The record is a 100-nucleotide sequence from Alkaliphilus peptidifermentans, which matches "Glycine riboswitch aptamer" in Rfam.
RNA sequence: AUGACAGUAGCGAGAGAUACCCAAAGGGUAGCCGAAGAUGCAAUAUAAAAGGUACCAGCCUUUUAUAGAAACUUUCAGGCAAAGGUAUCGUUACCGGAUG
Numbered sequence: 001a002u003g004a005c006a007g008u009a010g011c012g013a014g015a016g017a018u019a020c021c022c023a024a025a026g027g028g029u030a031g032c033c034g035a036a037g038a039u040g041c042a043a044u045a046u047a048a049a050a051g052g053u054a055c056c057a058g059c060c061u062u063u064u065a066u067a068g069a070a071a072c073u074u075u076c077a078g079g080c081a082a083a084g085g086u087a088u089c090g091u092u093a094c095c096g097g098a099u100g
Stems, first nucleotide, its partner, number of pairs: 007094007019029004031080003034076002038074001040072001044067010
NCBI's taxonomy places the organism under Bacteria, Bacillota, Clostridia, Natronincolaceae, Alkaliphilus peptidifermentans.